[Rfam]
RNA sequence: GCCGGUCCUCGGUCGUGGUCUCCGGGAGCGCAAGCUGCGGAGGCUUCCAUCGAAGACCGGC
Numbered sequence: 001g002c003c004g005g006u007c008c009u010c011g012g013u014c015g016u017g018g019u020c021u022c023c024g025g026g027a028g029c030g031c032a033a034g035c036u037g038c039g040g041a042g043g044c045u046u047c048c049a050u051c052g053a054a055g056a057c058c059g060g061c
Base pairs, nucleotide, nucleotide: 001061002060003059004058005057006056007055009053010052011051012050013049017045018044019043020042021041022040023039024038027036028035029034

Rfam assigns this 61-nucleotide RNA sequence from Acidothermus cellulolyticus to the family "Actino-pnp RNA". The base pairs follow the family's consensus structure, which is taken from published work.